[Rfam]
RNA sequence: UUUGGCUCUGUGAUGAAGCACUACGGAUGUAAAAUCAUUUCUGUCCGAGAUGCGCAUAACUCCCCGUGUGGAUACUUCCGUUGCCUUCCUUCUGAGGCCCAU
Number, nucleotide and partner (000 for none) at each position: 001u000002u000003u101004g100005g099006c000007u000008c000009u000010g000011u000012g000013a000014u000015g000016a000017a000018g000019c000020a000021c000022u000023a000024c080025g079026g078027a077028u000029g000030u000031a000032a000033a000034a000035u000036c000037a000038u000039u000040u000041c000042u000043g000044u000045c000046c000047g000048a000049g000050a000051u000052g000053c000054g000055c000056a000057u000058a000059a000060c000061u000062c000063c000064c000065c000066g000067u000068g000069u000070g000071g000072a000073u000074a000075c000076u000077u027078c026079c025080g024081u000082u000083g000084c000085c000086u000087u000088c000089c000090u000091u000092c000093u000094g000095a000096g000097g000098c000099c005100c004101a003102u000
Background: Small nucleolar RNA Z13/snr52: a 102-nucleotide RNA sequence from Coprinopsis cinerea. Gene Ontology terms of the family: RNA processing and nucleolus. The sequence is in the family's curated seed alignment. It is annotated as a C/D-box small nucleolar RNA. Taxonomically the source falls in Coprinopsis cinerea (Eukaryota, Basidiomycota, Agaricomycetidae, Agaricales).